The record is an 80-nucleotide sequence from Hermetia illucens, which matches "drz-agam-1 ribozyme" in Rfam. On this family, see Webb et al., Science 2009: "Widespread occurrence of self-cleaving ribozymes". A search with the family's covariance model found it, with a score of 38 bits. Rfam 15.1 lists 10,507 matches to the family in 53 species. The base pairs follow the family's consensus structure, which is taken from published work.
Nucleotides: 080
Base pairs, nucleotide, nucleotide: 013080014079015078017076019074020073022034023033024032045066046065047064048063050061051060053059
Number, partner (000 for none) and nucleotide at each position: 001000a002000c003000c004000a005000a006000a007000c008000c009000a010000a011000a012000c013080c014079c015078u016000a017076u018000c019074u020073u021000c022034a023033c024032c025000u026000c027000c028000a029000c030000g031000u032024g033023g034022u035000g036000a037000c038000c039000a040000c041000u042000g043000g044000g045066a046065g047064c048063u049000c050061u051060u052000u053059c054000u055000u056000a057000a058000c059053g060051a061050a062000a063048a064047g065046c066045u067000g068000c069000a070000g071000a072000u073020g074019g075000a076017g077000a078015a079014g080013g